[Rfam]
RNA sequence: ACUGGAAGCUGCUGGGACCAGUUGUGGGCAAAAGAAACAUGUUUUGUCCACUGUUGCAGUCUUCCUAGAGCAAAGUGGACGUUUCUGUCUUCUUUAGGAGAGCCAACUAAACCAGAUCAUUCACCUCCAUACACA
Numbered sequence: 001a002c003u004g005g006a007a008g009c010u011g012c013u014g015g016g017a018c019c020a021g022u023u024g025u026g027g028g029c030a031a032a033a034g035a036a037a038c039a040u041g042u043u044u045u046g047u048c049c050a051c052u053g054u055u056g057c058a059g060u061c062u063u064c065c066u067a068g069a070g071c072a073a074a075g076u077g078g079a080c081g082u083u084u085c086u087g088u089c090u091u092c093u094u095u096a097g098g099a100g101a102g103c104c105a106a107c108u109a110a111a112c113c114a115g116a117u118c119a120u121u122c123a124c125c126u127c128c129a130u131a132c133a134c135a
Stems, first nucleotide, its partner, number of pairs: 004065003008060005024051006034043002077128003081124001087117003093111005

This 135-nucleotide RNA from Dromas ardeola belongs to the Rfam family "Small Cajal body specific RNA 3". Lineage of the source: Eukaryota > Opisthokonta > Metazoa > Charadriiformes > Dromas. It scores 95 bits against the family's covariance model. scaRNAs are a specific class of small nuclear RNAs which localise to the Cajal bodies and guide the modification of RNA polymerase II transcribed spliceosomal RNAs U1, U2, U4, U5 and U12. Its family is annotated with nucleolus, Cajal body and RNA processing in the Gene Ontology. For this family Rfam cites "Cajal body-specific small nuclear RNAs: a novel class of 2'-O-methylation and pseudouridylation guide RNAs" (Darzacq et al., EMBO J, 2002). Pairs were carried over by alignment from the consensus structure, which was predicted with RNAalifold.